[Rfam]
Vault RNA: a 75-nucleotide RNA sequence from Denticeps clupeoides. The organism belongs to Denticeps, within Eukaryota. A reference for the family is Stadler et al. (2009), "Evolution of Vault RNAs", Mol Biol Evol. Rfam's curators write: This family of RNAs are found as part of the enigmatic vault ribonucleoprotein complex.

RNA sequence: AUGCUGGGUAGCUCAGGUGAUACUUCAACUUCCGCGGGCCCGAGGUUCGAACCCCGGGCGCAGUCCAGCGUUUUU
Numbered sequence: 001a002u003g004c005u006g007g008g009u010a011g012c013u014c015a016g017g018u019g020a021u022a023c024u025u026c027a028a029c030u031u032c033c034g035c036g037g038g039c040c041c042g043a044g045g046u047u048c049g050a051a052c053c054c055c056g057g058g059c060g061c062a063g064u065c066c067a068g069c070g071u072u073u074u075u
Base pairs, nucleotide, nucleotide: 002070003069004068005067006066007065011059012058013057014056016055017054019052024051025050026049028047